[Rfam]
RNA sequence: AAAAAACUAAAAGCGCCAGGACUAAGCCGGAACGGAAGCGGUUUAGUUGACGAGGUGGAGGUUUAUCGAAAGUUCGGCGGAUGCCUCCCGGCUGAACGUGCACAGCCGCAGGAAUUCUUAUCUUAAAACAGCGGGGCAACCUGCUGCACAAAGGAUAAGAAAUGCACAUCU
Numbered sequence: 001a002a003a004a005a006a007c008u009a010a011a012a013g014c015g016c017c018a019g020g021a022c023u024a025a026g027c028c029g030g031a032a033c034g035g036a037a038g039c040g041g042u043u044u045a046g047u048u049g050a051c052g053a054g055g056u057g058g059a060g061g062u063u064u065a066u067c068g069a070a071a072g073u074u075c076g077g078c079g080g081a082u083g084c085c086u087c088c089c090g091g092c093u094g095a096a097c098g099u100g101c102a103c104a105g106c107c108g109c110a111g112g113a114a115u116u117c118u119u120a121u122c123u124u125a126a127a128a129c130a131g132c133g134g135g136g137c138a139a140c141c142u143g144c145u146g147c148a149c150a151a152a153g154g155a156u157a158a159g160a161a162a163u164g165c166a167c168a169u170c171u
Base pairs, nucleotide, nucleotide: 020048021047022046023045024044025043026042027041029039057088058087059086060085061084066077067076068075069074089108090107091106092105093104094103115161116160117159118158119157120156121155129146130145131144132143133142134141135140